[Rfam]
RNA: Histidine operon leader
RNA sequence: UCACCACCAUCAUCAUCCUGACUAGUCUUUCGGGAGAUGUGGUUUCGACUGGAAGACAAGGAGUAAGGUUCUUCCACCGGUCAUCAAAGCGAGCACAAGAUUCAGACCCCCGGAAGCGAACCUUCCGGGGGUUUUCACUU
Numbered sequence: 001u002c003a004c005c006a007c008c009a010u011c012a013u014c015a016u017c018c019u020g021a022c023u024a025g026u027c028u029u030u031c032g033g034g035a036g037a038u039g040u041g042g043u044u045u046c047g048a049c050u051g052g053a054a055g056a057c058a059a060g061g062a063g064u065a066a067g068g069u070u071c072u073u074c075c076a077c078c079g080g081u082c083a084u085c086a087a088a089g090c091g092a093g094c095a096c097a098a099g100a101u102u103c104a105g106a107c108c109c110c111c112g113g114a115a116g117c118g119a120a121c122c123u124u125c126c127g128g129g130g131g132u133u134u135u136c137a138c139u140u
Stems, first nucleotide, its partner, number of pairs: 009045001011039004017034005047077001050076007101137001104134013